[Rfam]
Nucleotides: 069
Stems, first nucleotide, its partner, number of pairs: 002069005
Number, partner (000 for none) and nucleotide at each position: 001000c002069g003068c004067a005066c006065a007000a008000g009000u010000g011000a012000u013000g014000a015000a016000c017000a018000g019000c020000a021000g022000a023000g024000g025000g026000a027000c028000u029000u030000a031000a032000u033000a034000c035000u036000g037000a038000a039000g040000c041000c042000u043000g044000a045000u046000g047000u048000g049000a050000u051000a052000c053000u054000g055000u056000g057000a058000u059000g060000u061000c062000u063000g064000a065006u066005g067004u068003g069002c